[Rfam]
RNA sequence: UCAGUUGUUCAGUCAGCGGAGCCCAACAAUACAUUCAGGAUAAAUAAAUUGCGUUGUGUGAAGCCGUCGGAAAAAUACCCGCAGGAAACUGUAGACAAAUCCGUGAGGGAAGGUUGAAUCUGCUCGUAACAGGUGGAGAAGUGC
Dot-bracket structure: .(.((((......)))).).......(.((.(((.(((..(.((....)))..))).))).....)).)...........((((....)))).(((....((....))....)))...((((((.......)))))).......

Shown here is a 144-nucleotide RNA sequence from Pelodictyon phaeoclathratiforme, a member of the family "Group II catalytic intron D1-D4-7".
A reference for the family is Chu et al. (2001), "Control of branch-site choice by a group II intron", EMBO J.
About the family: Group II introns are found in rRNA, tRNA and mRNA of organelles in fungi, plants and protists, and also in mRNA in bacteria.
Lineage of the source: Bacteria > Chlorobiota > Chlorobiia > Pelodictyon > Pelodictyon phaeoclathratiforme.
The pairing is the family consensus, mapped onto this sequence.
Rfam 15.1 lists 1,296 matches to the family in 705 species.